[Rfam]
RNA sequence: CAAGUUCCUAUCAAUCAAAUUCUGAAUACCAGAAAAAGGGCUACACUCUCUGACUCAUUUAUUUACAGUAAAACAGAUACGAACAAACCCAAACCCACAGCCAAUUGUUAGAUUCACAUCACACCCAACAUACAAAUGGUCAAAAAAAAAGAGGAUUCUCUCAAAAUUUCAAGGUGAGAAGAAGUGAAAAUGUAUAUGUUAAACUAGAGAAGCCUCCUCCUGAAAUUUCUGGUCGUUGAUUGAUAAAUACGAACGAGAAGACCGACACCAAUCCCAAGACCAACACAGACACCAAGUCCUAU
Numbered sequence: 001c002a003a004g005u006u007c008c009u010a011u012c013a014a015u016c017a018a019a020u021u022c023u024g025a026a027u028a029c030c031a032g033a034a035a036a037a038g039g040g041c042u043a044c045a046c047u048c049u050c051u052g053a054c055u056c057a058u059u060u061a062u063u064u065a066c067a068g069u070a071a072a073a074c075a076g077a078u079a080c081g082a083a084c085a086a087a088c089c090c091a092a093a094c095c096c097a098c099a100g101c102c103a104a105u106u107g108u109u110a111g112a113u114u115c116a117c118a119u120c121a122c123a124c125c126c127a128a129c130a131u132a133c134a135a136a137u138g139g140u141c142a143a144a145a146a147a148a149a150a151g152a153g154g155a156u157u158c159u160c161u162c163a164a165a166a167u168u169u170c171a172a173g174g175u176g177a178g179a180a181g182a183a184g185u186g187a188a189a190a191u192g193u194a195u196a197u198g199u200u201a202a203a204c205u206a207g208a209g210a211a212g213c214c215u216c217c218u219c220c221u222g223a224a225a226u227u228u229c230u231g232g233u234c235g236u237u238g239a240u241u242g243a244u245a246a247a248u249a250c251g252a253a254c255g256a257g258a259a260g261a262c263c264g265a266c267a268c269c270a271a272u273c274c275c276a277a278g279a280c281c282a283a284c285a286c287a288g289a290c291a292c293c294a295a296g297u298c299c300u301a302u
Stems, first nucleotide, its partner, number of pairs: 011223003023065006034051001036049001104140006111133001112131002114128001151219005158212002161209001169208002172205002184195003227291001228289004232284002235280003238273005248265001250264002254260001
Dot-bracket structure: ..........(((.........((((((.....(.(............).)........))))))......................................((((((.((((.............).)).).))))))..........(((((..((.(.......((.((..........(((......)))........)).))).))..))))).)))...(((((((.((((((((.....(.((..(.....)..)))...)))))....)))..)).)))).)...........
This 302-nucleotide RNA from Eutrema salsugineum belongs to the Rfam family "TeloSII non coding RNA 33". The base pairs follow the family's consensus structure, which was predicted with RNAfold. Located downstream of the TeloSII elements. These elements have been shown to coordinate the expression of protein-coding gene related to ribosome biogenesis throughout the cell cycle in Arabidopsis. The organism belongs to Eutrema, within Eukaryota.